This 124-nucleotide RNA belongs to the Rfam family "LOOT RNA". Pairs were carried over by alignment from the consensus structure, which is taken from published work. By type it is a small RNA.

[Rfam]
RNA sequence: AGCCUAACCCUUUGGUCUAAACGCCCAAGAUAUGGUUAAAAAUCCACGUGAAUAAAGACGGUCUUCUGAUCGGCAUUAUUCACGUGGUCAACAUCCGAAAGGGUGUUGGGCGACGCAAGUUGCC
Numbered sequence: 001a002g003c004c005u006a007a008c009c010c011u012u013u014g015g016u017c018u019a020a021a022c023g024c025c026c027a028a029g030a031u032a033u034g035g036u037u038a039a040a041a042a043u044c045c046a047c048g049u050g051a052a053u054a055a056a057g058a059c060g061g062u063c064u065u066c067u068g069a070u071c072g073g074c075a076u077u078a079u080u081c082a083c084g085u086g087g088u089c090a091a092c093a094u095c096c097g098a099a100a101g102g103g104u105g106u107u108g109g110g111c112g113a114c115g116c117a118a119g120u121u122g123c124c
Base pairs, nucleotide, nucleotide: 001037002036003035004034010029011028012027014025015024044087045086046085047084048083049082050081051080052079053078054077057074059072060071061070062069063068089108090107091106092105093104094103095102096101109124110123111122112121113120114119